RNA sequence: ACCCAUCGGACAGCGAUCUCCUCCUCCCAAAGCUGUUCGAUAAGCGAUCGGCAACACUCCUCCUCCCAGUUGCCGAUCAAGUUUUAAGCCCGACGGAUCCUCCCCCGUCGGGCUUUUCAU
Numbered sequence: 001a002c003c004c005a006u007c008g009g010a011c012a013g014c015g016a017u018c019u020c021c022u023c024c025u026c027c028c029a030a031a032g033c034u035g036u037u038c039g040a041u042a043a044g045c046g047a048u049c050g051g052c053a054a055c056a057c058u059c060c061u062c063c064u065c066c067c068a069g070u071u072g073c074c075g076a077u078c079a080a081g082u083u084u085u086a087a088g089c090c091c092g093a094c095g096g097a098u099c100c101u102c103c104c105c106c107g108u109c110g111g112g113c114u115u116u117u118c119a120u
Stems, first nucleotide, its partner, number of pairs: 007039002010036005046078010086115011

A member of the RNA family "Alphaproteobacterial ar14" from Rhizobium metallidurans, 120 nucleotides long. The literature on the family includes a 2012 paper in RNA Biol by del Val et al., "A survey of sRNA families in alpha-proteobacteria". Rfam 15.1 lists 784 matches to the family in 332 species. A search with the family's covariance model found it, with a score of 96 bits. Lineage of the source: Bacteria > Pseudomonadota > Alphaproteobacteria > Rhizobiaceae > Rhizobium. From the family's description: Smr14C2 was renamed NfeR1 (Nodule Formation Efficiency RNA) highly expressed in salt stress and during the symbiotic interaction on legume roots.